[Rfam]
RNA sequence: GGCGUGAUGAUGCGAUCCUGUUCGGUGGGGGAGCUCCUGCAGUGGCGGGAACCUUCACUCAGACUCCUGAUGACACACACAGGGGCCAUCUGACCAGCA
Numbered sequence: 001g002g003c004g005u006g007a008u009g010a011u012g013c014g015a016u017c018c019u020g021u022u023c024g025g026u027g028g029g030g031g032a033g034c035u036c037c038u039g040c041a042g043u044g045g046c047g048g049g050a051a052c053c054u055u056c057a058c059u060c061a062g063a064c065u066c067c068u069g070a071u072g073a074c075a076c077a078c079a080c081a082g083g084g085g086c087c088a089u090c091u092g093a094c095c096a097g098c099a
Base pairs, nucleotide, nucleotide: 004098005096006095021063022062024060025058026057027056028055030053031052036049037048038047039046040045
The record is a 99-nucleotide RNA sequence from Pangasianodon hypophthalmus, which matches "Small nucleolar RNA SNORD67" in Rfam. For this family Rfam cites "RNomics: an experimental approach that identifies 201 candidates for novel, small, non-messenger RNAs in mouse" (Huttenhofer et al., EMBO J, 2001). snoRNA HBII-166 belongs to the C/D family of snoRNAs.